[Rfam]
This 67-nucleotide sequence from Felis catus belongs to the Rfam family "Small nucleolar RNA SNORD77". Clan: SNORD77 clan. Rfam links the family to the GO terms RNA processing and nucleolus. Lineage of the source: Eukaryota > Chordata > Dipnotetrapodomorpha > Felinae > Felis. It is annotated as a C/D-box small nucleolar RNA. The sequence is in the family's curated seed alignment. Pairs were carried over by alignment from the consensus structure, which was predicted with RNAalifold. On this family, see Tycowski et al., Curr Biol 2004: "Guide RNAs with 5' caps and novel box C/D snoRNA-like domains for modification of snRNAs in metazoa". U77 belongs to the C/D family of snoRNAs. It is predicted to guide 2'O-ribose methylation of large 28S rRNA subunit at position A1521. The C/D snoRNAs U44, U47, U74, U75, U76, U78, U79, U80 and U81 share the same host gene as U77 (non-coding).

Nucleotides: 067
Base pairs, nucleotide, nucleotide: 001065002064003063004062006038007037008036009035010034013028014027015026016025043054044053045052046051
Number, partner (000 for none) and nucleotide at each position: 001065a002064u003063a004062c005000u006038a007037u008036g009035a010034u011000g012000g013028u014027u015026g016025c017000a018000u019000a020000g021000u022000u023000c024000a025016g026015c027014a028013g029000a030000u031000u032000g033000g034010a035009u036008c037007a038006u039000g040000a041000a042000g043054a044053g045052a046051u047000a048000g049000c050000u051046a052045u053044c054043u055000a056000u057000c058000u059000g060000a061000u062004g063003u064002a065001u066000c067000g